[Rfam]
Shown here is an 85-nucleotide sequence from Torulaspora delbrueckii, a member of the family "Small nucleolar RNA SNORD18". Rfam links the family to the GO terms RNA processing and nucleolus. NCBI's taxonomy places the organism under Eukaryota, Ascomycota, saccharomyceta, Saccharomycotina, Torulaspora.
RNA sequence: UUAGAAUGAUGAAUUUAAUUCUUUGGUCCGUGUUUAUGACGGGAAGUAAGACCCCCGGUAUGAGUGACAAAAGAGAUGUGAUUAA
Numbered sequence: 001u002u003a004g005a006a007u008g009a010u011g012a013a014u015u016u017a018a019u020u021c022u023u024u025g026g027u028c029c030g031u032g033u034u035u036a037u038g039a040c041g042g043g044a045a046g047u048a049a050g051a052c053c054c055c056c057g058g059u060a061u062g063a064g065u066g067a068c069a070a071a072a073g074a075g076a077u078g079u080g081a082u083u084a085a
Stems, first nucleotide, its partner, number of pairs: 001085004